[Rfam]
RNA: MIR6217 microRNA precursor family
Organism: Miscanthus lutarioriparius
RNA sequence: UAGCUACAAAAUAACUUAUUCUGUAGCCAGCUUGAGUUACGAUAAUUACUAUGUUAAUUUACGAGAUUAUAGUAACUCCUUAUUAAGUGGUUUACUAUAACGUUAUAGUAAAUAUCCCAUGUGUUAUAGGAACCCAACUAUCGUAAAUACGUAUUGACAUUAUCGUAAAUUAAUAUAUAAAAAUAUAGUAAAUGGAGGUGGCUACAAAAUAACUCAUAUAUAUAGAGA
Numbered sequence: 001u002a003g004c005u006a007c008a009a010a011a012u013a014a015c016u017u018a019u020u021c022u023g024u025a026g027c028c029a030g031c032u033u034g035a036g037u038u039a040c041g042a043u044a045a046u047u048a049c050u051a052u053g054u055u056a057a058u059u060u061a062c063g064a065g066a067u068u069a070u071a072g073u074a075a076c077u078c079c080u081u082a083u084u085a086a087g088u089g090g091u092u093u094a095c096u097a098u099a100a101c102g103u104u105a106u107a108g109u110a111a112a113u114a115u116c117c118c119a120u121g122u123g124u125u126a127u128a129g130g131a132a133c134c135c136a137a138c139u140a141u142c143g144u145a146a147a148u149a150c151g152u153a154u155u156g157a158c159a160u161u162a163u164c165g166u167a168a169a170u171u172a173a174u175a176u177a178u179a180a181a182a183a184u185a186u187a188g189u190a191a192a193u194g195g196a197g198g199u200g201g202c203u204a205c206a207a208a209a210u211a212a213c214u215c216a217u218a219u220a221u222a223u224a225g226a227g228a
Base pairs, nucleotide, nucleotide: 001228004225005224006223008221009219011217012216014214016212017211018210019209020208022206023205024204025203026202027201028200029199031197032196033195037191038190039189040188042186043185044184046182047181050177051176052175053174054173055172056171057170058169059168060167061166062165065164066163067162069160070159074154080146081145082144083143087141088140089139090138091137092136093131095129096128097127098126099125100124101123102122103121108116